[Rfam]
RNA: small nucleolar RNA snoR114
RNA sequence: GAGCAGUGAGGACAAACGUGCCUUGUGAUGGUAGGGUCCAUCGCUAUCACCGCAAAGUCGGUGAUUGUUGGCACAGCUGAGCUC
Number, nucleotide and partner (000 for none) at each position: 001g084002a083003g082004c081005a000006g000007u000008g000009a000010g000011g000012a000013c000014a000015a000016a000017c000018g000019u000020g000021c000022c000023u000024u000025g000026u000027g000028a000029u000030g000031g000032u000033a000034g000035g000036g000037u000038c000039c000040a000041u000042c000043g000044c000045u000046a000047u000048c000049a000050c000051c000052g000053c000054a000055a000056a000057g000058u000059c000060g000061g000062u000063g000064a000065u000066u000067g000068u000069u000070g000071g000072c000073a000074c000075a000076g000077c000078u000079g000080a000081g004082c003083u002084c001